[Rfam]
RNA sequence: CAAGGUUUGAUUUUCAAUGAUUCGUCAUUUUCUCCUACUCGGUCUACUACUAAACGCAUCCAAUGUGCGCGGUAGACGCGUGGGCGAAAAGAUUCAGUGAGUCGAGCCUGCCGUACUAAAGAACCCGCGCCAAUGCGCGGGUUUUUUU
Dot-bracket structure: ..(.(((((....(((.(((..........((.(((((.(......(((((...((((.......)))).)))))..).))))).))......))).)))..))))).)..........(((((((((((....)))))))))))...